Shown here is a 48-nucleotide RNA sequence from Viola seoulensis, a member of the family "Plastid-ycf3 group II-D1 intron". Rfam describes the family as follows. Plastid rpl16 is a non-coding RNA (ncRNA) recognised in plastids. It was recognised in and intronic region of a ribosome rpl16 gene. The base pairs follow the family's consensus structure, which was predicted with LocARNA. The family has 385 seed sequences and 1,488 matches in Rfam 15.1. A reference for the family is Richter et al. (2023), "Retrograde signaling in plants: A critical review focusing on the GUN pathway and beyond", Plant Commun. Taxonomically the source falls in Viola subsect. Patellares (Eukaryota, Streptophyta, Gunneridae, Viola sect. Plagiostigma).
RNA sequence: AUUCCUUCUGUUGUGUACCCCCAAUUAAUGCAGCCUCGGAUGCUUCAA
Numbered sequence: 001a002u003u004c005c006u007u008c009u010g011u012u013g014u015g016u017a018c019c020c021c022c023a024a025u026u027a028a029u030g031c032a033g034c035c036u037c038g039g040a041u042g043c044u045u046c047a048a
Stems, first nucleotide, its partner, number of pairs: 010025004032044003